Rfam assigns this 175-nucleotide RNA sequence from Thalassomonas actiniarum to the family "Gammaprotebacteria rimP leader". A search with the family's covariance model found it, with a score of 50 bits. The family's RNA type in Rfam is cis-regulatory leader.

Nucleotides: 175
Stems, first nucleotide, its partner, number of pairs: 034054008156168004
Number, partner (000 for none) and nucleotide at each position: 001000g002000a003000g004000a005000a006000u007000u008000g009000a010000u011000g012000a013000a014000c015000a016000c017000a018000a019000a020000g021000g022000g023000u024000u025000c026000a027000g028000u029000g030000a031000a032000a033000u034054a035053a036052g037051c038050c039049c040048c041047g042000a043000g044000u045000g046000a047041u048040g049039g050038g051037g052036c053035u054034u055000u056000u057000u058000u059000g060000u061000a062000u063000u064000u065000g066000u067000u068000u069000c070000u071000u072000u073000g074000c075000g076000a077000u078000a079000u080000c081000u082000c083000a084000u085000c086000u087000g088000a089000g090000u091000a092000u093000c094000a095000a096000g097000c098000c099000u100000g101000a102000u103000g104000u105000c106000a107000g108000a109000g110000a111000a112000a113000u114000a115000u116000g117000g118000u119000a120000a121000a122000g123000a124000a125000a126000c127000a128000a129000a130000u131000a132000c133000a134000a135000u136000c137000a138000c139000a140000g141000c142000a143000a144000g145000a146000a147000c148000u149000a150000u151000u152000c153000g154000c155000u156168g157167g158166g159165c160000u161000a162000u163000a164000u165159g166158c167157c168156c169000u170000u171000u172000u173000u174000u175000u